The record is a 154-nucleotide sequence from Sulfitobacter pontiacus, which matches "6S / SsrS RNA" in Rfam. It is annotated as a non-coding RNA gene. The base pairs follow the family's consensus structure, which is taken from published work. The source organism's lineage runs through Bacteria, Pseudomonadota, Rhodobacterales, Roseobacteraceae and Sulfitobacter.
RNA sequence: CGGGUUCUGCCCUGUUUGUAAAAGUUACAUUCCAGUGGCCUUAAGCAAAUCCGAGGGAGCUGGCUCUGUUCGAGCCCUGGUUCGUUUAUCUGGCACCCACCUGUACAUACAGGUCCUCGGGAAUAUAGAACAGAACGGCAGCGGUGGUCCCGUC
Dot-bracket structure: ..((..(((((((((.(((..........((((.(.((((..............(((.(((((....(..(((((....)))))..)..))))).))).............)))).).))))............))))))).)))))..))...